[Rfam]
RNA: TD-1 RNA
Organism: Treponema parvum
Nucleotides: 113
Stems, first nucleotide, its partner, number of pairs: 011034002013031007046062007064107001066105007074098002078093006
Number, partner (000 for none) and nucleotide at each position: 001000a002000u003000u004000u005000a006000a007000u008000u009000u010000c011034g012033a013031g014030u015029u016028u017027g018026c019025c020000c021000u022000u023000u024000a025019g026018g027017c028016a029015a030014a031013c032000a033012u034011c035000g036000c037000u038000u039000a040000u041000c042000a043000a044000c045000u046062g047061u048060g049059c050058g051057c052056a053000a054000a055000a056052u057051g058050c059049g060048c061047a062046c063000g064107a065000a066105u067104g068103c069102g070101u071100c072099g073000u074098c075097c076000u077000c078093g079092a080091a081090a082089u083088c084000u085000g086000a087000u088083g089082a090081u091080u092079u093078c094000u095000g096000c097075g098074g099072c100071g101070a102069c103068g104067c105066a106000g107064u108000u109000u110000u111000u112000a113000a